[Rfam]
RNA sequence: AAAUGAUAAUGGCACACUUAUUGAAAAAUAAGGUCGCAAAGCUUAUGAGUCUAAAGGAAAGAUAUUUUUUCUAUGAUCGUCAGGUUACCAAA
Numbered sequence: 001a002a003a004u005g006a007u008a009a010u011g012g013c014a015c016a017c018u019u020a021u022u023g024a025a026a027a028a029u030a031a032g033g034u035c036g037c038a039a040a041g042c043u044u045a046u047g048a049g050u051c052u053a054a055a056g057g058a059a060a061g062a063u064a065u066u067u068u069u070u071c072u073a074u075g076a077u078c079g080u081c082a083g084g085u086u087a088c089c090a091a092a
Base pairs, nucleotide, nucleotide: 012037013036017032018031019030020029021028022027040086041085042084043083046082047081048080049077050076051075056071057070058069059068060067061066
The record is a 92-nucleotide RNA from Clostridium taeniosporum, which matches "c-di-GMP-I riboswitch aptamer" in Rfam. It scores 70 bits against the family's covariance model.